This 135-nucleotide RNA sequence from Xenorhabdus innexi belongs to the Rfam family "EFASI RNA". The family's consensus secondary structure is taken from published work. A search with the family's covariance model found it, with a score of 68 bits. By type it is a small RNA.
RNA sequence: ACGUCACGAUUAAUGAGGCGUUCAUCCUGAGCGGAUCAGGUACUGAACGGGGAGUAUUCCAUCGCCGUGCUGAGCACGUCGCGAACUCCUGCAAAAACUCAACACUACCUCGCCUUGCUACACAUUAAUCUGACG
Dot-bracket structure: .((((..(((((((....((((((...................))))))((((........(((((((((...)))))..))))..)))).................................))))))).))))